[Rfam]
RNA sequence: CCGUGUCAGGUCACAUUGUGCCACCUUGCCAGAAGGUGCAACCUGCGAGGCCCCAGGUGGACUGGGU
Numbered sequence: 001c002c003g004u005g006u007c008a009g010g011u012c013a014c015a016u017u018g019u020g021c022c023a024c025c026u027u028g029c030c031a032g033a034a035g036g037u038g039c040a041a042c043c044u045g046c047g048a049g050g051c052c053c054c055a056g057g058u059g060g061a062c063u064g065g066g067u
Stems, first nucleotide, its partner, number of pairs: 006047001007045005012020003024036003052066005
Rfam assigns this 67-nucleotide RNA from Orthoflavivirus murrayense to the family "General Flavivirus exoribonuclease-resistant RNA element". Pairs were carried over by alignment from the consensus structure, which was predicted with LocARNA. Rfam's curators put it in the seed alignment. A reference for the family is Pijlman et al. (2008), "A highly structured, nuclease-resistant, noncoding RNA produced by flaviviruses is required for pathogenicity", Cell Host Microbe. Lineage of the source: Viruses > Kitrinoviricota > Flasuviricetes > Euflavivirus > Murray Valley encephalitis virus. About the family: The exoribonuclease-resistant RNA elements (xrRNA) are described throughout all groups of flaviviruses. Usually, each virus harbors two xrRNAs, xrRNA1 and xrRNA2, in the beginning of the 3' UTR. The formation of these stem-loops, especially xrRNA1, is vital to ensure resistance against XRN1 activity.